[Rfam]
RNA sequence: UUGUUGGUAACGGCAGGGUCUAAAGGAAGCGAUAGGAAGUGAGUGGUACAUAGCGCAAGCGAACCUGAUUCGGCGAUGCGGGAGGGUAAACGUGCAAAAUAGCGUAAAGCCCAAUACUUGGUCAGUCCCGUAUCGUGUUUGAGGAUGCGAUUGCUCACAGGGAGUUCGC
Numbered sequence: 001u002u003g004u005u006g007g008u009a010a011c012g013g014c015a016g017g018g019u020c021u022a023a024a025g026g027a028a029g030c031g032a033u034a035g036g037a038a039g040u041g042a043g044u045g046g047u048a049c050a051u052a053g054c055g056c057a058a059g060c061g062a063a064c065c066u067g068a069u070u071c072g073g074c075g076a077u078g079c080g081g082g083a084g085g086g087u088a089a090a091c092g093u094g095c096a097a098a099a100u101a102g103c104g105u106a107a108a109g110c111c112c113a114a115u116a117c118u119u120g121g122u123c124a125g126u127c128c129c130g131u132a133u134c135g136u137g138u139u140u141g142a143g144g145a146u147g148c149g150a151u152u153g154c155u156c157a158c159a160g161g162g163a164g165u166u167c168g169c
Stems, first nucleotide, its partner, number of pairs: 001016006029169004040157005046151001047149001049147003064144003068140001073136003077132007084112004090105004